[Rfam]
The family of this 156-nucleotide sequence from Paenibacillus dendritiformis is "c-di-AMP riboswitch aptamer (ydaO/yuaA leader)".
Gene Ontology terms of the family: cyclic-di-AMP binding and regulation of gene expression.

RNA sequence: AAUUGAAUACAGCCGAAUUUCGUGAAUACGAAAGCGGGGGACCCGAUCAUUGGGGUGAAUUUUGCGCCGAUCCGCGUUAAGGAUCGACGCAAAUAGGGCGGCCUGGACGCGCCCGAAUCCGUCAGCUAACCUCGUAGGCAUUGAACGUCAGGAUAC
Numbered sequence: 001a002a003u004u005g006a007a008u009a010c011a012g013c014c015g016a017a018u019u020u021c022g023u024g025a026a027u028a029c030g031a032a033a034g035c036g037g038g039g040g041a042c043c044c045g046a047u048c049a050u051u052g053g054g055g056u057g058a059a060u061u062u063u064g065c066g067c068c069g070a071u072c073c074g075c076g077u078u079a080a081g082g083a084u085c086g087a088c089g090c091a092a093a094u095a096g097g098g099c100g101g102c103c104u105g106g107a108c109g110c111g112c113c114c115g116a117a118u119c120c121g122u123c124a125g126c127u128a129a130c131c132u133c134g135u136a137g138g139c140a141u142u143g144a145a146c147g148u149c150a151g152g153a154u155a156c
Base pairs, nucleotide, nucleotide: 012139013138014137018033019032020031021030022029023028034135035134036133037132038131039130044052045051053120054119055118061093062092063091064090065089066088096114097113098112099111

Taxonomically the source falls in Paenibacillus dendritiformis (Bacteria, Bacillota, Caryophanales, Paenibacillaceae).